The record is a 74-nucleotide RNA sequence from Arenicella chitinivorans, which matches "tRNA" in Rfam. The organism belongs to Arenicella, within Bacteria. It is annotated as a transfer RNA.

[Rfam]
RNA sequence: GCGCCUGUAGCUCAGCUGGAUAGAGUACUUGGCUUCGAACCAAGUGGUCGGGGGUUCGAAUCCCUCCGGGCGCG
Numbered sequence: 001g002c003g004c005c006u007g008u009a010g011c012u013c014a015g016c017u018g019g020a021u022a023g024a025g026u027a028c029u030u031g032g033c034u035u036c037g038a039a040c041c042a043a044g045u046g047g048u049c050g051g052g053g054g055u056u057c058g059a060a061u062c063c064c065u066c067c068g069g070g071c072g073c074g
Stems, first nucleotide, its partner, number of pairs: 001073007010026004028044005050066005